Rfam assigns this 93-nucleotide sequence to the family "c-di-GMP-I riboswitch aptamer". A search with the family's covariance model found it, with a score of 37 bits. Rfam links the family to the GO term cyclic-di-GMP binding. The base pairs follow the family's consensus structure, which is taken from published work.
RNA sequence: CACUGACGAAGGAGAUCUGAUGGAGAUAUAAGGUCGCAAAGCUUCUGGGCAAGUCUGAUGCUAAGCCCCAGAUAUGCCCGAAGGGCUGCCAGA
Numbered sequence: 001c002a003c004u005g006a007c008g009a010a011g012g013a014g015a016u017c018u019g020a021u022g023g024a025g026a027u028a029u030a031a032g033g034u035c036g037c038a039a040a041g042c043u044u045c046u047g048g049g050c051a052a053g054u055c056u057g058a059u060g061c062u063a064a065g066c067c068c069c070a071g072a073u074a075u076g077c078c079c080g081a082a083g084g085g086c087u088g089c090c091a092g093a
Stems, first nucleotide, its partner, number of pairs: 012037001017032002020029003040087004045083002048078003054072004